[Rfam]
RNA sequence: UUAUGCCUUCGGGGUCGGGUGAAAUUCCCAAUCGGCGGUGAUUAGCGAUCAGCUAUAAGUCCGUGACCCGUGAACAAUAUUGUGAGCGGUGGAUCCGGUUAAAUUCCGGAGCCGACAGUUAAAGUCUGGAUGGGAGAAGGCAAAC
Number, nucleotide and partner (000 for none) at each position: 001u000002u000003a000004u142005g141006c140007c139008u138009u137010c136011g000012g000013g000014g000015u000016c000017g029018g028019g027020u000021g000022a000023a000024a000025u000026u000027c019028c018029c017030a000031a125032u124033c114034g113035g064036c063037g062038g061039u000040g000041a000042u000043u000044a000045g000046c000047g000048a000049u000050c000051a000052g000053c000054u000055a000056u000057a000058a000059g112060u111061c038062c037063g036064u035065g000066a000067c000068c089069c088070g000071u000072g000073a000074a000075c000076a000077a000078u000079a000080u000081u000082g000083u000084g000085a000086g000087c000088g069089g068090u000091g000092g000093a000094u110095c109096c108097g107098g106099u000100u000101a000102a000103a000104u000105u000106c098107c097108g096109g095110a094111g060112c059113c034114g033115a000116c128117a127118g126119u000120u000121a000122a000123a000124g032125u031126c118127u117128g116129g000130a000131u000132g000133g000134g000135a000136g010137a009138a008139g007140g006141c005142a004143a000144a000145c000
RNA: FMN riboswitch aptamer (RFN element)
Organism: Scopulibacillus darangshiensis